A member of the RNA family "Small Cajal body specific RNA 16" from Echinops telfairi, 184 nucleotides long. Rfam's curators put it in the seed alignment. Lineage of the source: Eukaryota > Craniata > Amniota > Afrotheria > Echinops. It is annotated as a small Cajal body RNA. The family's consensus secondary structure was predicted with RNAfold.

RNA sequence: UAUGAUUGGGGAACAGCUCCUAUGCGGCUUAACCCACCCAGCAUUGGGUGCAGCCUGGUACCAGACAGCCCCACCCUGACCUAGAGCAAAUGCUUGGGGCGCUCCCCUGGGCUUAGAACUUGCACUAACAGGUGUGAACAUUCUAGUAGUAGUUUGAUGAUCAUAUAUGCUACUGCAAACAGGA
Numbered sequence: 001u002a003u004g005a006u007u008g009g010g011g012a013a014c015a016g017c018u019c020c021u022a023u024g025c026g027g028c029u030u031a032a033c034c035c036a037c038c039c040a041g042c043a044u045u046g047g048g049u050g051c052a053g054c055c056u057g058g059u060a061c062c063a064g065a066c067a068g069c070c071c072c073a074c075c076c077u078g079a080c081c082u083a084g085a086g087c088a089a090a091u092g093c094u095u096g097g098g099g100c101g102c103u104c105c106c107c108u109g110g111g112c113u114u115a116g117a118a119c120u121u122g123c124a125c126u127a128a129c130a131g132g133u134g135u136g137a138a139c140a141u142u143c144u145a146g147u148a149g150u151a152g153u154u155u156g157a158u159g160a161u162c163a164u165a166u167a168u169g170c171u172a173c174u175g176c177a178a179a180c181a182g183g184a
Stems, first nucleotide, its partner, number of pairs: 004080001006078001008076003016069003020064002024061001026055004032049003093111003096107004120178005126172002129169002135163003139159004145154003